[Rfam]
RNA: Molybdenum/Tungsten riboswitch aptamer (Moco RNA motif)
Organism: Pelotomaculum propionicicum
RNA sequence: UCUAUCCAAAAUCUCCGAACCUGGCGAUCUAAGGCUUUAAAGCUAUGAUUUCCAGGUCGUUAGGGUAUAUGGGGAAACCGGUAUGCCUCCCGGGCUUGGAAAGGAGAUAAACGAGAUGACUG
Numbered sequence: 001u002c003u004a005u006c007c008a009a010a011a012u013c014u015c016c017g018a019a020c021c022u023g024g025c026g027a028u029c030u031a032a033g034g035c036u037u038u039a040a041a042g043c044u045a046u047g048a049u050u051u052c053c054a055g056g057u058c059g060u061u062a063g064g065g066u067a068u069a070u071g072g073g074g075a076a077a078c079c080g081g082u083a084u085g086c087c088u089c090c091c092g093g094g095c096u097u098g099g100a101a102a103g104g105a106g107a108u109a110a111a112c113g114a115g116a117u118g119a120c121u122g
Base pairs, nucleotide, nucleotide: 003116006113011108012107013106014105015104016103019057020056021055022054023053024052026050027049028048029047033044034043035042036041063088064087065086066085067084068083069082070081072079073078089099090098